[Rfam]
RNA sequence: CAUUGAUCCUACCGGGACGUGCAUCGGGAGCAAUCCUUUUGUGCGAAGCUUCCGGGACAACGAAGCCUGCGGGGCGAUCAGCCCCGGAAGAGUGAACCGCGAGGGGAACCCGACUCUGCGAGCGUCAACGCGGUAAGGAGC
Numbered sequence: 001c002a003u004u005g006a007u008c009c010u011a012c013c014g015g016g017a018c019g020u021g022c023a024u025c026g027g028g029a030g031c032a033a034u035c036c037u038u039u040u041g042u043g044c045g046a047a048g049c050u051u052c053c054g055g056g057a058c059a060a061c062g063a064a065g066c067c068u069g070c071g072g073g074g075c076g077a078u079c080a081g082c083c084c085c086g087g088a089a090g091a092g093u094g095a096a097c098c099g100c101g102a103g104g105g106g107a108a109c110c111c112g113a114c115u116c117u118g119c120g121a122g123c124g125u126c127a128a129c130g131c132g133g134u135a136a137g138g139a140g141c
Base pairs, nucleotide, nucleotide: 013054014053015052016051017050018045019044020043021042022041023040026037027036028035029034068088070086071085072084073083074082075081090111092109093108097104098103116133117132118131119130120129
The family of this 141-nucleotide RNA from Desulfonema ishimotonii is "Group II catalytic intron D1-D4-7". Rfam describes the family as follows. Group II introns are found in rRNA, tRNA and mRNA of organelles in fungi, plants and protists, and also in mRNA in bacteria. Rfam 15.1 lists 1,296 matches to the family in 705 species. Rfam links the family to the GO term Group II intron splicing. NCBI's taxonomy places the organism under Bacteria, Pseudomonadati, Thermodesulfobacteriota, Desulfococcaceae, Desulfonema.